[Rfam]
RNA sequence: GGCUCGGUAGCUUAAUUUCAGAGCGAAGGACUCAUAAUCCUUGGGGUGCCGGUGAGAGUCCGGCCCGAGCCA
Numbered sequence: 001g002g003c004u005c006g007g008u009a010g011c012u013u014a015a016u017u018u019c020a021g022a023g024c025g026a027a028g029g030a031c032u033c034a035u036a037a038u039c040c041u042u043g044g045g046g047u048g049c050c051g052g053u054g055a056g057a058g059u060c061c062g063g064c065c066c067g068a069g070c071c072a
Stems, first nucleotide, its partner, number of pairs: 001071007010024004026042005048064005